The family of this 103-nucleotide RNA sequence from Thalassobaculum fulvum is "Glycine riboswitch aptamer". NCBI's taxonomy places the organism under Bacteria, Pseudomonadota, Alphaproteobacteria, Rhodospirillales, Thalassobaculum. Gene Ontology term of the family: glycine biosynthetic process.
RNA sequence: CUCUGGAGAGCAGGCGCCGGCAGACCAUCGCCGCCCGCCUCACCGACGGGGAAAGCCGGGACGCCUAUCCGCCCGGCCAAUCUCUCAGGUCUUUCGGACAGAG
Numbered sequence: 001c002u003c004u005g006g007a008g009a010g011c012a013g014g015c016g017c018c019g020g021c022a023g024a025c026c027a028u029c030g031c032c033g034c035c036c037g038c039c040u041c042a043c044c045g046a047c048g049g050g051g052a053a054a055g056c057c058g059g060g061a062c063g064c065c066u067a068u069c070c071g072c073c074c075g076g077c078c079a080a081u082c083u084c085u086c087a088g089g090u091c092u093u094u095c096g097g098a099c100a101g102a103g
Base pairs, nucleotide, nucleotide: 001103002102003101004100005099012040013039014038015037042090043089044088045086046085049084050083051082055077056076057075058074059073060072